[Rfam]
RNA sequence: AUAAUUCAAUAUGGAUUGCUUCAUAUAUCCUCGAAAAUAUGGUUCGAAAGUAUCUACCAAAUCACCGUAAAUGAUUUGACUAUGAAGACAGAUAAAUAGAAA
Number, nucleotide and partner (000 for none) at each position: 001a000002u000003a000004a000005u000006u000007c000008a000009a000010u000011a000012u000013g000014g000015a000016u000017u000018g000019c087020u086021u085022c084023a083024u082025a081026u000027a000028u000029c000030c000031u047032c046033g045034a044035a043036a000037a000038u000039a000040u000041g000042g000043u035044u034045c033046g032047a031048a000049a000050g000051u000052a000053u000054c000055u000056a000057c000058c078059a077060a076061a075062u074063c073064a072065c000066c000067g000068u000069a000070a000071a000072u064073g063074a062075u061076u060077u059078g058079a000080c000081u025082a024083u023084g022085a021086a020087g019088a000089c000090a000091g000092a000093u000094a000095a000096a000097u000098a000099g000100a000101a000102a000
Shown here is a 102-nucleotide sequence from Peribacillus deserti, a member of the family "Purine riboswitch aptamer". The organism belongs to Peribacillus, within Bacteria. Clan: Purine riboswitches. The base pairs follow the family's consensus structure, which is taken from published work.